Shown here is a 281-nucleotide RNA sequence from Clohesyomyces aquaticus, a member of the family "A. fumigatus sRNA Afu_309". Taxonomically the source falls in Clohesyomyces (Eukaryota, Ascomycota, dothideomyceta, Pleosporales). On this family, see Jochl et al., Nucleic Acids Res 2008: "Small ncRNA transcriptome analysis from Aspergillus fumigatus suggests a novel mechanism for regulation of protein synthesis". The family's consensus secondary structure was predicted with WAR.
RNA sequence: CUCUUUCCUCCAACCACAACCUGUGUCCGCCUGUCCCUUCCACCUCUGGGUGUGUUUGGCGACGGCGCGACAGUUUGUCCACCCAAGGAGCCAUCAAAUUCCCAUGAUGUCAAUUUCCGGACAACAGGUUGGAGACCAAGUUGGUACGUUUCUGGAAGCCUGAGUUCACCUCCGGGUUUGAGCUUGGUGGAAGGAGCGUUUCCUGGGCGUUUGAUUCCUAAUCCCUUCGCUGAGGCCGUCGGCUUGUGAAGUUAGGGAAAGACCCAUUCCUGCCUACAUAU
Numbered sequence: 001c002u003c004u005u006u007c008c009u010c011c012a013a014c015c016a017c018a019a020c021c022u023g024u025g026u027c028c029g030c031c032u033g034u035c036c037c038u039u040c041c042a043c044c045u046c047u048g049g050g051u052g053u054g055u056u057u058g059g060c061g062a063c064g065g066c067g068c069g070a071c072a073g074u075u076u077g078u079c080c081a082c083c084c085a086a087g088g089a090g091c092c093a094u095c096a097a098a099u100u101c102c103c104a105u106g107a108u109g110u111c112a113a114u115u116u117c118c119g120g121a122c123a124a125c126a127g128g129u130u131g132g133a134g135a136c137c138a139a140g141u142u143g144g145u146a147c148g149u150u151u152c153u154g155g156a157a158g159c160c161u162g163a164g165u166u167c168a169c170c171u172c173c174g175g176g177u178u179u180g181a182g183c184u185u186g187g188u189g190g191a192a193g194g195a196g197c198g199u200u201u202c203c204u205g206g207g208c209g210u211u212u213g214a215u216u217c218c219u220a221a222u223c224c225c226u227u228c229g230c231u232g233a234g235g236c237c238g239u240c241g242g243c244u245u246g247u248g249a250a251g252u253u254a255g256g257g258a259a260a261g262a263c264c265c266a267u268u269c270c271u272g273c274c275u276a277c278a279u280a281u
Base pairs, nucleotide, nucleotide: 017131018130019129020128021127022126023125024124025071026070027069028067029066031065032064033063034062035061036059037058041052042051043050044049082120083119087111088110090108092106143200144199148197149196150195151194152193153192163185164183165182166181167180168179169176170175206274207273208272209269212266213265222258223257224256225255226254229252230251231250234244235243236242237241